[Rfam]
Nucleotides: 054
Base pairs, nucleotide, nucleotide: 006048007047009045010044011043012042022037023036024035025034026033027032
Number, partner (000 for none) and nucleotide at each position: 001000c002000c003000u004000g005000c006048g007047g008000c009045c010044c011043g012042g013000g014000c015000c016000c017000c018000u019000c020000u021000g022037g023036c024035g025034a026033g027032a028000c029000a030000u031000g032027u033026c034025u035024c036023g037022u038000g039000a040000u041000g042012u043011c044010g045009g046000a047007c048006c049000g050000c051000a052000u053000c054000g